A member of the RNA family "small nucleolar RNA snR91" from Schizosaccharomyces cryophilus, 143 nucleotides long. It scores 77 bits against the family's covariance model.

RNA sequence: ACGUUGCGCUGCUGUUUUAUUGAGCCUCUAUGUUUUUUCGACGCAUUUAGACUUACGGAGCAGCAGUAGAUGAAAAACGAAAACCUAAAAGGCAGUGGCUUCCAUUUGAAUGAAGCUUACUGCAAGAGAAGGUUUUAACAUUU
Numbered sequence: 001a002c003g004u005u006g007c008g009c010u011g012c013u014g015u016u017u018u019a020u021u022g023a024g025c026c027u028c029u030a031u032g033u034u035u036u037u038u039c040g041a042c043g044c045a046u047u048u049a050g051a052c053u054u055a056c057g058g059a060g061c062a063g064c065a066g067u068a069g070a071u072g073a074a075a076a077a078c079g080a081a082a083a084c085c086u087a088a089a090a091g092g093c094a095g096u097g098g099c100u101u102c103c104a105u106u107u108g109a110a111u112g113a114a115g116c117u118u119a120c121u122g123c124a125a126g127a128g129a130a131g132g133u134u135u136u137a138a139c140a141u142u143u
Base pairs, nucleotide, nucleotide: 009066010065011064012063013062014061015060016059017058020055023053024052027049031045032044092123093122094121110118

Annotation
Gene Ontology terms of the family: RNA processing and nucleolus. Pairs were carried over by alignment from the consensus structure, which was predicted with RNAalifold.